The family of this 105-nucleotide RNA sequence from Dermatophilus congolensis is "TPP riboswitch aptamer (THI element)". Its family is annotated with thiamine pyrophosphate binding in the Gene Ontology. About the family: Vitamin B(1) in its active form thiamin pyrophosphate (TPP) is an essential coenzyme that is synthesised by coupling of pyrimidine and thiazole moieties in bacteria. The previously detected thiamin-regulatory element, thi box was extended, resulting in a new, highly conserved RNA secondary structure, the THI element, which is widely distributed in eubacteria and also occurs in some archaea. Pairs were carried over by alignment from the consensus structure, which is taken from published work. It scores 66 bits against the family's covariance model. The source organism's lineage runs through Bacteria, Bacillati, Actinomycetota, Actinomycetes and Dermatophilus.
RNA sequence: UUUCUACGACAGGGGAGCGCAGGAAGCGCUGAGAGUGCGGGUGUUCCGCAGACCCUCGAACCUGAUCCGGUUAGUACCGGUGUAGGGAGUCGGGAUCUUCUCGUG
Numbered sequence: 001u002u003u004c005u006a007c008g009a010c011a012g013g014g015g016a017g018c019g020c021a022g023g024a025a026g027c028g029c030u031g032a033g034a035g036u037g038c039g040g041g042u043g044u045u046c047c048g049c050a051g052a053c054c055c056u057c058g059a060a061c062c063u064g065a066u067c068c069g070g071u072u073a074g075u076a077c078c079g080g081u082g083u084a085g086g087g088a089g090u091c092g093g094g095a096u097c098u099u100c101u102c103g104u105g
Stems, first nucleotide, its partner, number of pairs: 007092004011056004017029004036050005061086004067080004